[Rfam]
RNA sequence: AAAGUGUCCUACGCGAACGCCAUGGACUGGUUCAUCGCUGUCUGCUUCGCCUUC
Numbered sequence: 001a002a003a004g005u006g007u008c009c010u011a012c013g014c015g016a017a018c019g020c021c022a023u024g025g026a027c028u029g030g031u032u033c034a035u036c037g038c039u040g041u042c043u044g045c046u047u048c049g050c051c052u053u054c
Stems, first nucleotide, its partner, number of pairs: 002053002006051001008049001011046001013045002015042002019038002022035005